[Rfam]
RNA: eL15-Euryarchaeota ribosomal protein leader
RNA sequence: CGGACUAACUUGUCCGUUGGGAUGUGGUCCCUUUGGGGACUGAACCGCAAA
Number, nucleotide and partner (000 for none) at each position: 001c016002g015003g014004a013005c012006u000007a000008a000009c000010u000011u000012g005013u004014c003015c002016g001017u000018u047019g046020g045021g000022a000023u000024g000025u000026g041027g040028u039029c038030c037031c000032u000033u000034u000035g000036g000037g030038g029039a028040c027041u026042g000043a000044a000045c020046c019047g018048c000049a000050a000051a000